[Rfam]
RNA: c-di-GMP-I-GGC riboswitch aptamer
RNA sequence: CAUGCUAAAGCCAAACUCCGGGCGACCGGAGGACGGAAAGCAACGGGUCUUAAUAUAAAGACAGCCGGGCUGCCAUGA
Number, nucleotide and partner (000 for none) at each position: 001c000002a000003u075004g074005c000006u000007a000008a000009a000010g000011c036012c035013a000014a000015a000016c031017u030018c029019c028020g027021g026022g000023c000024g000025a000026c021027c020028g019029g018030a017031g016032g000033a000034c064035g012036g011037a000038a000039a071040g070041c069042a000043a000044c067045g066046g065047g062048u061049c060050u000051u000052a000053a000054u000055a000056u000057a000058a000059a000060g049061a048062c047063a000064g034065c046066c045067g044068g000069g041070c040071u039072g000073c000074c004075a003076u000077g000078a000